[Rfam]
This 115-nucleotide sequence from Corynebacterium incognitum belongs to the Rfam family "TPP riboswitch aptamer (THI element)". A search with the family's covariance model found it, with a score of 62 bits. NCBI's taxonomy places the organism under Bacteria, Actinomycetota, Mycobacteriales, Corynebacteriaceae, Corynebacterium.
RNA sequence: UGUCCAUCACACGGGCGCCCAUGGCAGUGGGCUGAGAUCGCACUAACGCCACAGUGCGAGCACCGUUUGAACCUGUCUGGUUAACACCAGCGAAGGAAGUGAGGUUGAAGGCCAU
Numbered sequence: 001u002g003u004c005c006a007u008c009a010c011a012c013g014g015g016c017g018c019c020c021a022u023g024g025c026a027g028u029g030g031g032c033u034g035a036g037a038u039c040g041c042a043c044u045a046a047c048g049c050c051a052c053a054g055u056g057c058g059a060g061c062a063c064c065g066u067u068u069g070a071a072c073c074u075g076u077c078u079g080g081u082u083a084a085c086a087c088c089a090g091c092g093a094a095g096g097a098a099g100u101g102a103g104g105u106u107g108a109a110g111g112c113c114a115u
Stems, first nucleotide, its partner, number of pairs: 007102004011066004017032005039058005072096003077090004